[Rfam]
The family of this 578-nucleotide part of an RNA from Thermoplasmatales archaeon E-plasma is "Archaeal large subunit ribosomal RNA". A search with the family's covariance model found it, with a score of 2733 bits.
RNA sequence: GUCCCACGUGAAAGCGAAGUCCCCGUGGAGCUUUACUGCAGCCUGUAGCUGUAAUACGGUUUUCGAUGCGUAGUGUAGGAAGGAGCCGUCGAUGCCAGAAUCUCGGUUCUGGUGGAGGCAACAAUGAAACACUUCCCUUCGUUAACUGCGUUACUAACUUGAUGAAAGGACACCUAUUGGUAGGCAGUUUGGGUGGGGCGCCACGCCCCUGAGAAUCAAACAGGGGCCCCCAAUGGUUGGCUCAGGAGGGUCAGAAAUCCUCCGUAGAGUGUAAGAGCAAAAGCCAGCUUGACUGUGUUGCAGGCAAUAAGCAACGCAGAUGCGAAAGCAAGGUCUAACGAACCACCCUGUCCCCUCUUGAUGAGGGCGGGUGAUAAGAGAAAAGUUACCCCAGGGAUAACUGAGUUGUCCUCGGCAAGAGUUCACAUCGACCCGAGGGUUUGCUACUUCGAUGUCGUCUGUUCCUAUCCUGGUGCUGAACAAGGUGCCAAGGGUGGGGCUGUUCGCCCAUUAAAAGGGAUCCUGAGAUGGGUUCACUACGUCGCGAGACAGUAGGGUUGCUUCUCCGUGGGGCUGUU
Dot-bracket structure: ((((((((.((..((......((.(.(((((((.((((...((.((((..(((((.(((((..(((.(.........(((((..(((.........(((((....)))))......)))............)))))).)))..))))).)))))...(((.....))).....)))).))....))))..((((.....))).)((((((...........))))))..((....((((((((.((((((.......))))))...))((......))....))))))....(((((((((.........))))))))).(.(....).).))..........(((((.(..((((.......)))))))))).........)))))..))).))........(((.((((((((...((.......))...)))))))..))))..........(((((((((((..((..(((((......)))))....))..((((.....))))......)))))..)..)))).).....(((((((....))).))))....))...))))))))))....
Source information
Taxonomically the source falls in Thermoplasmatales (Archaea, Methanobacteriati, Thermoplasmatota, Thermoplasmata). The family has 91 seed sequences and 2,955 matches in Rfam 15.1.